[Rfam]
RNA sequence: GCCAAGUAGCUGGGUACCACUCUGUUGUUCUCUUGUGAUAGUUUAAGAUUGAGUGAACACAGCUGGUGGUAUCUCAGCUCCUUUGUCA
Numbered sequence: 001g002c003c004a005a006g007u008a009g010c011u012g013g014g015u016a017c018c019a020c021u022c023u024g025u026u027g028u029u030c031u032c033u034u035g036u037g038a039u040a041g042u043u044u045a046a047g048a049u050u051g052a053g054u055g056a057a058c059a060c061a062g063c064u065g066g067u068g069g070u071a072u073c074u075c076a077g078c079u080c081c082u083u084u085g086u087c088a
Stems, first nucleotide, its partner, number of pairs: 008079003012075001013073002016070002019067003022062003027058001029056002
The record is an 88-nucleotide sequence from Diaphorina citri, which matches "mir-317 microRNA precursor family" in Rfam. The organism belongs to Diaphorina, within Eukaryota. A search with the family's covariance model found it, with a score of 56 bits.